U4 spliceosomal RNA: a 141-nucleotide RNA sequence from Otolemur garnettii. Its family is annotated with U4 snRNP and spliceosomal tri-snRNP complex assembly in the Gene Ontology. About the family: U4 small nuclear RNA (U4 snRNA) is a component of the major U2-dependent spliceosome. The match comes from Rfam's covariance-model search (96 bits). The base pairs follow the family's consensus structure, which is taken from published work. Taxonomically the source falls in Otolemur (Eukaryota, Sarcopterygii, Lorisiformes, Galagidae).
RNA sequence: AGCUUUGCACAGAGGCAGUAUCAUAGCCAAUGAAGUUUAUCCAAGGCAUGAUUAUUGCUAAUUGAAAACUUUUCCCAAUACCCCGCUGUGACCACUUGCAAUGCAGUCAGCACUGACAAUUUUUGACAGUCUCUACAAAGA
Numbered sequence: 001a002g003c004u005u006u007g008c009a010c011a012g013a014g015g016c017a018g019u020a021u022c023a024u025a026g027c028c029a030a031u032g033a034a035g036u037u038u039a040u041c042c043a044a045g046g047c048a049u050g051a052u053u054a055u056u057g058c059u060a061a062u063u064g065a066a067a068a069c070u071u072u073u074c075c076c077a078a079u080a081c082c083c084c085g086c087u088g089u090g091a092c093c094a095c096u097u098g099c100a101a102u103g104c105a106g107u108c109a110g111c112a113c114u115g116a117c118a119a120u121u122u123u124u125g126a127c128a129g130u131c132u133c134u135a136c137a138a139a140g141a
Base pairs, nucleotide, nucleotide: 020052021051022050023049024048026047027046028045035041085117087115088113089112090111094107095106096105130141131140132139